[Rfam]
Nucleotides: 120
Base pairs, nucleotide, nucleotide: 020109021108022107023106025104026103030099031098033096034095036093038091039090040089
Number, partner (000 for none) and nucleotide at each position: 001000u002000u003000a004000c005000a006000c007000a008000g009000a010000g011000a012000u013000g014000u015000u016000g017000a018000u019000u020109g021108u022107c023106a024000c025104g026103u027000g028000u029000c030099a031098u032000g033096u034095u035000c036093u037000u038091a039090u040089u041000g042000g043000a044000u045000g046000u047000c048000a049000a050000c051000u052000c053000c054000a055000u056000g057000g058000a059000a060000g061000a062000u063000g064000a065000a066000a067000u068000g069000c070000a071000u072000u073000g074000u075000u076000g077000u078000u079000u080000u081000c082000a083000u084000u085000g086000a087000c088000c089040a090039a091038u092000c093036a094000u095034a096033a097000c098031a099030u100000a101000a102000c103026a104025c105000g106023u107022g108021a109020c110000a111000g112000u113000c114000a115000u116000c117000a118000u119000c120000c
Rfam assigns this 120-nucleotide RNA sequence from Glycine max to the family "MIR1520 microRNA precursor family". The family has 18 seed sequences and 1,934 matches in Rfam 15.1. A search with the family's covariance model found it, with a score of 110 bits. The family is grouped with related families in Rfam's "MIR1520 microRNA precursor clan". Taxonomically the source falls in Glycine subgen. Soja (Eukaryota, Streptophyta, Magnoliopsida, Gunneridae). Rfam links the family to the GO terms RISC complex and miRNA-mediated post-transcriptional gene silencing.